[Rfam]
Nucleotides: 108
Base pairs, nucleotide, nucleotide: 001108002107003106004105005104006103007102008101013042016041017040018039022032023031024030026081028079029077043072044071045070046069048068049067051063052062053061082097083096084095085094086093
Number, partner (000 for none) and nucleotide at each position: 001108c002107u003106c004105u005104u006103a007102u008101c009000c010000c011000g012000a013042g014000u015000u016041g017040g018039u019000g020000g021000a022032g023031g024030g025000a026081c027000a028079g029077g030024c031023c032022c033000g034000a035000u036000g037000a038000a039018a040017c041016c042013c043072a044071g045070c046069a047000a048068c049067c050000g051063u052062c053061a054000c055000a056000a057000a058000a059000a060000g061053u062052g063051a064000a065000a066000a067049g068048g069046u070045g071044c072043u073000a074000a075000c076000c077029u078000g079028u080000g081026g082097c083096a084095a085094g086093g087000c088000a089000a090000a091000g092000c093086c094085c095084u096083u097082g098000a099000a100000c101008g102007a103006u104005a105004a106003g107002a108001g

A member of the RNA family "SAM riboswitch aptamer (S box leader)" from Thermolongibacillus altinsuensis, 108 nucleotides long. NCBI's taxonomy places the organism under Bacteria, Bacillati, Bacillota, Anoxybacillaceae, Thermolongibacillus.